Small nucleolar RNA SNORD22: a 113-nucleotide sequence from Octodon degus.
By type it is a C/D-box small nucleolar RNA.
Rfam 15.1 lists 1,081 matches to the family in 414 species.
The family's consensus secondary structure was predicted with PFOLD.
Lineage of the source: Eukaryota > Craniata > Vertebrata > Octodontidae > Octodon.
RNA sequence: UCCCAGUAAAGAAAUAUGUACAUGUCUUACUCCCUGCUCUUGCUCCACAGCCUAGAGAGGUGAAGCGACUGGGGCUAGCUAGGGAAAGAGGUGGUUCCGGAGGAGCGAGGGGU
Numbered sequence: 001u002c003c004c005a006g007u008a009a010a011g012a013a014a015u016a017u018g019u020a021c022a023u024g025u026c027u028u029a030c031u032c033c034c035u036g037c038u039c040u041u042g043c044u045c046c047a048c049a050g051c052c053u054a055g056a057g058a059g060g061u062g063a064a065g066c067g068a069c070u071g072g073g074g075c076u077a078g079c080u081a082g083g084g085a086a087a088g089a090g091g092u093g094g095u096u097c098c099g100g101a102g103g104a105g106c107g108a109g110g111g112g113u
Stems, first nucleotide, its partner, number of pairs: 001112004